RNA sequence: ACACCUAUAGCUCAGUUGGUUAGAGUGCUACCCUGACAUGGUAGAGGUCGCUGGUUCGAGUCCAGUUAGGUGUA
Numbered sequence: 001a002c003a004c005c006u007a008u009a010g011c012u013c014a015g016u017u018g019g020u021u022a023g024a025g026u027g028c029u030a031c032c033c034u035g036a037c038a039u040g041g042u043a044g045a046g047g048u049c050g051c052u053g054g055u056u057c058g059a060g061u062c063c064a065g066u067u068a069g070g071u072g073u074a
Stems, first nucleotide, its partner, number of pairs: 001073007010026004028044005050066005